Source information
This 89-nucleotide sequence from Krasilnikovia cinnamomea belongs to the Rfam family "ZMP/ZTP riboswitch aptamer (pfl RNA motif)". NCBI's taxonomy places the organism under Bacteria, Bacillati, Actinomycetes, Micromonosporales, Krasilnikovia. The base pairs follow the family's consensus structure, which is taken from published work. For this family Rfam cites "Recognition of the bacterial alarmone ZMP through long-distance association of two RNA subdomains" (Jones and Ferre-D'Amare, Nat Struct Mol Biol, 2015).
RNA sequence: GCGGCGGGCCGUGACUGGCGCGUUCGGAUGGGCAACCAUCGGGGAGCGGUCCCGUCACCUGACGUAUGCCGUGCGCCUGGGCCUCUUCA
Numbered sequence: 001g002c003g004g005c006g007g008g009c010c011g012u013g014a015c016u017g018g019c020g021c022g023u024u025c026g027g028a029u030g031g032g033c034a035a036c037c038a039u040c041g042g043g044g045a046g047c048g049g050u051c052c053c054g055u056c057a058c059c060u061g062a063c064g065u066a067u068g069c070c071g072u073g074c075g076c077c078u079g080g081g082c083c084u085c086u087u088c089a
Stems, first nucleotide, its partner, number of pairs: 003056003006052007015043002017077005028039004066084001068082003
The match comes from Rfam's covariance-model search (52 bits).